[Rfam]
Record summary
sul1 RNA: a 56-nucleotide sequence from Nitratireductor basaltis.
RNA sequence: CCUGGACCCGGUGAAACUCCGGGUGGCUCUGCCGGCCGCUUAUCCGCCGGCAUAAU
Numbered sequence: 001c002c003u004g005g006a007c008c009c010g011g012u013g014a015a016a017c018u019c020c021g022g023g024u025g026g027c028u029c030u031g032c033c034g035g036c037c038g039c040u041u042a043u044c045c046g047c048c049g050g051c052a053u054a055a056u
Stems, first nucleotide, its partner, number of pairs: 006024006031051006

The family's RNA type in Rfam is riboswitch. It scores 68 bits against the family's covariance model. Pairs were carried over by alignment from the consensus structure, which is taken from published work.